[Rfam]
Overview
This 115-nucleotide RNA sequence from Rufibacter tibetensis belongs to the Rfam family "SAM riboswitch aptamer (S box leader)". Rfam describes the family as follows. The SAM riboswitch is found upstream of a number of genes which code for proteins involved in methionine or cysteine biosynthesis in Gram-positive bacteria. NCBI's taxonomy places the organism under Bacteria, Pseudomonadati, Cytophagales, Hymenobacteraceae, Rufibacter. The family's consensus secondary structure is taken from published work. Rfam links the family to the GO term regulation of gene expression.

RNA sequence: GAUUUAUAAAGAAGAGCGGAGAGACAGGCUCAAUGAAGCUCUAGCAACCUACCAGCCGUGUAAGGUGCUAAUUCCUGAUCCCAGGGGACAUAUUGCCACCUGGGGAAUAUAAAUU
Numbered sequence: 001g002a003u004u005u006a007u008a009a010a011g012a013a014g015a016g017c018g019g020a021g022a023g024a025c026a027g028g029c030u031c032a033a034u035g036a037a038g039c040u041c042u043a044g045c046a047a048c049c050u051a052c053c054a055g056c057c058g059u060g061u062a063a064g065g066u067g068c069u070a071a072u073u074c075c076u077g078a079u080c081c082c083a084g085g086g087g088a089c090a091u092a093u094u095g096c097c098a099c100c101u102g103g104g105g106a107a108u109a110u111a112a113a114u115u
Base pairs, nucleotide, nucleotide: 001115002114003113004112005111006110007109008108013042014041015040016039017038021031022030023029025077026076027075028074043069044068045067046066048065049064050062051061052060073107080104081103082102083101084100085099